[Rfam]
RNA sequence: AUCGUAAAAGGGCAAACUUCCCGAAAGGGAAGGGCGCAAAGCUGACAGGCCUAAAGCCAAAAGUCGACUUAGAUAAGGCUUUAUUUAUGGUACGCAUAAGAAAGACAUGCUACUUAAACCUUUAAGUCUACGACUUUAUGGCCAGGGCGGCUGGGUUGCCGGG
Numbered sequence: 001a002u003c004g005u006a007a008a009a010g011g012g013c014a015a016a017c018u019u020c021c022c023g024a025a026a027g028g029g030a031a032g033g034g035c036g037c038a039a040a041g042c043u044g045a046c047a048g049g050c051c052u053a054a055a056g057c058c059a060a061a062a063g064u065c066g067a068c069u070u071a072g073a074u075a076a077g078g079c080u081u082u083a084u085u086u087a088u089g090g091u092a093c094g095c096a097u098a099a100g101a102a103a104g105a106c107a108u109g110c111u112a113c114u115u116a117a118a119c120c121u122u123u124a125a126g127u128c129u130a131c132g133a134c135u136u137u138a139u140g141g142c143c144a145g146g147g148c149g150g151c152u153g154g155g156u157u158g159c160c161g162g163g
Stems, first nucleotide, its partner, number of pairs: 012037002017032006040157004046153003049148003056142004
This 163-nucleotide sequence from Pelotomaculum propionicicum belongs to the Rfam family "c-di-GMP-I riboswitch aptamer". Pairs were carried over by alignment from the consensus structure, which is taken from published work. From the family's description: GEMM was predicted in a large-scale screen for bacterial structured RNA regulatory elements.